[Rfam]
RNA sequence: AGUCGCAAGCUCAGGCCAUAGCAGAAGUGCUUACAGUUCAGCCUUGUCAGAUUCCAAUGAAUCUGCAAAUUCUGCU
Numbered sequence: 001a002g003u004c005g006c007a008a009g010c011u012c013a014g015g016c017c018a019u020a021g022c023a024g025a026a027g028u029g030c031u032u033a034c035a036g037u038u039c040a041g042c043c044u045u046g047u048c049a050g051a052u053u054c055c056a057a058u059g060a061a062u063c064u065g066c067a068a069a070u071u072c073u074g075c076u
Base pairs, nucleotide, nucleotide: 013044014043015042016041020076021075022074023073024072025071026070027039029037048065049064050063051062052061053060054059
Overview: This 76-nucleotide sequence from Crocodylus porosus belongs to the Rfam family "Mammalian CPEB3 ribozyme". Gene Ontology term of the family: RNA nuclease activity. Rfam describes the family as follows. The mammalian CPEB3 ribozyme is a self cleaving RNA located in the second intron of the CPEB3 gene which belongs to a family of genes regulating messenger RNA polyadenylation. The source organism's lineage runs through Eukaryota, Chordata, Sauria, Crocodylidae and Crocodylus. Pairs were carried over by alignment from the consensus structure, which is taken from published work.